[Rfam]
RNA sequence: UGGCCGUGAUGACUAUCUUAGGACACCUUUGGAGUACCCAUGAAAAAAUAACCUCUCUGAGCCAU
Numbered sequence: 001u002g003g004c005c006g007u008g009a010u011g012a013c014u015a016u017c018u019u020a021g022g023a024c025a026c027c028u029u030u031g032g033a034g035u036a037c038c039c040a041u042g043a044a045a046a047a048a049u050a051a052c053c054u055c056u057c058u059g060a061g062c063c064a065u
Stems, first nucleotide, its partner, number of pairs: 001064004
Rfam assigns this 65-nucleotide RNA from Podilymbus podiceps to the family "Small nucleolar RNA SNORD58". Rfam's curators write: snoRNA U58 is found in introns 1, 3 and 6 of the ribosomal protein RPL17 gene in humans. The family's consensus secondary structure was predicted with PFOLD. The match comes from Rfam's covariance-model search (75 bits).